[Rfam]
The family of this 96-nucleotide RNA from Gossypium klotzschianum is "Plastid-rps12 3UTR RNA". The family has 1,299 seed sequences and 1,710 matches in Rfam 15.1. A search with the family's covariance model found it, with a score of 81 bits. It is annotated as a cis-regulatory element. Rfam's curators write: Plastid rpl20 is a non-coding RNA (ncRNA) recognised in plastids. It was found in the three prime untranslated region (3UTR) of rps12 gene, its 3UTR location sugest a role in transcript maduration.

RNA sequence: GGUUGCCAUUGGCGUAAAUCCAAUCUUGGAAUUUAAGAUGAGAAAAAAUUCUCUAUUGGUAGCAAAUGCUUAUACAUUAAGCGAGGAAAAUCCUAU
Number, nucleotide and partner (000 for none) at each position: 001g000002g000003u000004u000005g000006c000007c000008a000009u023010u022011g021012g020013c000014g000015u000016a000017a000018a000019u000020c012021c011022a010023a009024u000025c000026u000027u000028g000029g000030a000031a000032u000033u000034u000035a000036a000037g000038a000039u000040g000041a000042g000043a000044a000045a000046a000047a000048a000049u000050u000051c086052u085053c000054u083055a077056u076057u000058g000059g073060u072061a071062g070063c000064a000065a000066a000067u000068g000069c000070u062071u061072a060073u059074a000075c000076a056077u055078u000079a000080a000081g000082c000083g054084a000085g052086g051087a000088a000089a000090a000091u000092c000093c000094u000095a000096u000